[Rfam]
RNA sequence: UACAAUAUUGGCGAUGGGGCUCGCCCAAUGCUGAAAAGCUGAUGGCUCCUACCGGGCA
Numbered sequence: 001u002a003c004a005a006u007a008u009u010g011g012c013g014a015u016g017g018g019g020c021u022c023g024c025c026c027a028a029u030g031c032u033g034a035a036a037a038g039c040u041g042a043u044g045g046c047u048c049c050u051a052c053c054g055g056g057c058a
Stems, first nucleotide, its partner, number of pairs: 010025004016049006030039003
This 58-nucleotide sequence from Desulfallas thermosapovorans belongs to the Rfam family "Fluoride riboswitch aptamer (crcB RNA motif)". Rfam 15.1 lists 2,293 matches to the family in 1,982 species. The base pairs follow the family's consensus structure, which is taken from published work.